[Rfam]
RNA sequence: UGCAGUGAUGUGGUAAUUUGCGUCUGACGGUGCAUUGUGCAGACAGUUGCCUGCUGUCAAUAAAUGCCUCUGGCUCUCAUUGACGAAAAGUUAAAACUGAGCA
Dot-bracket structure: (((.................((((.....(..((....((.(((((.......))))).......))...))..)......))))...............)))